[Rfam]
RNA sequence: GCUGUCCAUGCCCAGCAUAUUGCUGUGCACUACUCAGCACGCCAGUUGAAGCGCACACUCUGGGAAAAGUCUUCCGCGUCAGUUGCUGCACCCGGAAUGCCUGCAACUACGCGCGUACUAAGUAGUGCACAGCAAGAUGCCGGAAAUGAACAAA
Numbered sequence: 001g002c003u004g005u006c007c008a009u010g011c012c013c014a015g016c017a018u019a020u021u022g023c024u025g026u027g028c029a030c031u032a033c034u035c036a037g038c039a040c041g042c043c044a045g046u047u048g049a050a051g052c053g054c055a056c057a058c059u060c061u062g063g064g065a066a067a068a069g070u071c072u073u074c075c076g077c078g079u080c081a082g083u084u085g086c087u088g089c090a091c092c093c094g095g096a097a098u099g100c101c102u103g104c105a106a107c108u109a110c111g112c113g114c115g116u117a118c119u120a121a122g123u124a125g126u127g128c129a130c131a132g133c134a135a136g137a138u139g140c141c142g143g144a145a146a147u148g149a150a151c152a153a154a
Base pairs, nucleotide, nucleotide: 003152004151005150007148008147009146012143013142015140016139017138018137020135021134022133023132024131025130026129027128028127029126030125031124032123033122034121036119037118039116040115041114042113050108051107056099057098059096060095061094062093063092
MIR898 microRNA precursor family: a 154-nucleotide RNA sequence from Physcomitrium patens. Pairs were carried over by alignment from the consensus structure, which was predicted with RNAalifold. Lineage of the source: Eukaryota > Embryophyta > Bryophytina > Funariaceae > Physcomitrium. Rfam 15.1 lists 7 matches to the family in 5 species. A search with the family's covariance model found it, with a score of 76 bits.